RNA sequence: GAUCACGCAACGCGGCCAUCGUUUUUCCAUCAGCCCUACAGCAGUCGAGGGUCUUUCAUCACAUAUCAGUUUCGGUAUAGCAACAACCAAAGAUCGCAUUUGACAGUUAUGUCAAAGGGACCCACCCUUCGCGCGUUCCGAGGCGCAAGGAUCGGUGACGAGCAAGAUCGUAUCGAUUGAAACAGCGUCGCGGAGCCGAUUGGGAGGAUACCGGAGAUCGAUAGGCGACAGUGGCGCGUCCGCGCUCCUGAUCGACUGCGCGGCCCGCGAAGCCCCGAGGUGUCGCGUCCAUCAACCAGGGAGAGUUAC
Numbered sequence: 001g002a003u004c005a006c007g008c009a010a011c012g013c014g015g016c017c018a019u020c021g022u023u024u025u026u027c028c029a030u031c032a033g034c035c036c037u038a039c040a041g042c043a044g045u046c047g048a049g050g051g052u053c054u055u056u057c058a059u060c061a062c063a064u065a066u067c068a069g070u071u072u073c074g075g076u077a078u079a080g081c082a083a084c085a086a087c088c089a090a091a092g093a094u095c096g097c098a099u100u101u102g103a104c105a106g107u108u109a110u111g112u113c114a115a116a117g118g119g120a121c122c123c124a125c126c127c128u129u130c131g132c133g134c135g136u137u138c139c140g141a142g143g144c145g146c147a148a149g150g151a152u153c154g155g156u157g158a159c160g161a162g163c164a165a166g167a168u169c170g171u172a173u174c175g176a177u178u179g180a181a182a183c184a185g186c187g188u189c190g191c192g193g194a195g196c197c198g199a200u201u202g203g204g205a206g207g208a209u210a211c212c213g214g215a216g217a218u219c220g221a222u223a224g225g226c227g228a229c230a231g232u233g234g235c236g237c238g239u240c241c242g243c244g245c246u247c248c249u250g251a252u253c254g255a256c257u258g259c260g261c262g263g264c265c266c267g268c269g270a271a272g273c274c275c276c277g278a279g280g281u282g283u284c285g286c287g288u289c290c291a292u293c294a295a296c297c298a299g300g301g302a303g304a305g306u307u308a309c
Base pairs, nucleotide, nucleotide: 009059010052011051013050016049071120072119073118080113082108083107084106088102089101090100091099133146134145135144136143137142150178151177152176153175154174159170160169161168186272187196188195202266203265204264226258227257231241245250273301274300275299277297279293280292281291282290